[Rfam]
Shown here is a 78-nucleotide RNA from Desulfuromonas soudanensis, a member of the family "c-di-GMP-I riboswitch aptamer". Its family is annotated with cyclic-di-GMP binding in the Gene Ontology. Lineage of the source: Bacteria > Desulfuromonadia > Desulfuromonadales > Desulfuromonadaceae > Desulfuromonas.
RNA sequence: CUCGGAAAAGGGCAAAACCAGAGCGAUCUGGUGACGCAAAGCCACGGGUCCGCAGGUGCGGAUAGCCGGGAUGCCGAA
Numbered sequence: 001c002u003c004g005g006a007a008a009a010g011g012g013c014a015a016a017a018c019c020a021g022a023g024c025g026a027u028c029u030g031g032u033g034a035c036g037c038a039a040a041g042c043c044a045c046g047g048g049u050c051c052g053c054a055g056g057u058g059c060g061g062a063u064a065g066c067c068g069g070g071a072u073g074c075c076g077a078a
Stems, first nucleotide, its partner, number of pairs: 012037002017032006040072001042070002045068003048063006
It scores 68 bits against the family's covariance model. The base pairs follow the family's consensus structure, which is taken from published work.